[Rfam]
RNA: SAM (S-adenosyl methionine) riboswitch aptamer
Organism: Rugosimonospora africana
RNA sequence: GGUCUCGAGUGCCAGCAUCAAGCCCCGGCUCGCUGGCCGGCAACCCUCCAAUCGUGGGUGGGGUGCCCCGGGUGACGACCCGGCCCGGCGCGCGGUGCGCCGGGCAAGCCGCGAUA
Numbered sequence: 001g002g003u004c005u006c007g008a009g010u011g012c013c014a015g016c017a018u019c020a021a022g023c024c025c026c027g028g029c030u031c032g033c034u035g036g037c038c039g040g041c042a043a044c045c046c047u048c049c050a051a052u053c054g055u056g057g058g059u060g061g062g063g064u065g066c067c068c069c070g071g072g073u074g075a076c077g078a079c080c081c082g083g084c085c086c087g088g089c090g091c092g093c094g095g096u097g098c099g100c101c102g103g104g105c106a107a108g109c110c111g112c113g114a115u116a
Stems, first nucleotide, its partner, number of pairs: 001080004009038001011037006021030002039067003044063003048058002083105010